[Rfam]
RNA sequence: UAUUACAACCAAAGAAAAACUUAUAUAAUGCUUUGAUAUGGAAAGCUGUUUCUACCUAAGACCGAGAAUCUUGGACUAUAAGUAAAAUUAGAAAACCG
Numbered sequence: 001u002a003u004u005a006c007a008a009c010c011a012a013a014g015a016a017a018a019a020c021u022u023a024u025a026u027a028a029u030g031c032u033u034u035g036a037u038a039u040g041g042a043a044a045g046c047u048g049u050u051u052c053u054a055c056c057u058a059a060g061a062c063c064g065a066g067a068a069u070c071u072u073g074g075a076c077u078a079u080a081a082g083u084a085a086a087a088u089u090a091g092a093a094a095a096c097c098g
Base pairs, nucleotide, nucleotide: 019083020082021081022080023079024078025077030046031045032044033043034042056074057073058072059071060070061069
Shown here is a 98-nucleotide RNA sequence from Ligilactobacillus ceti, a member of the family "Purine riboswitch aptamer". The source organism's lineage runs through Bacteria, Bacilli, Lactobacillales, Ligilactobacillus and Ligilactobacillus ceti.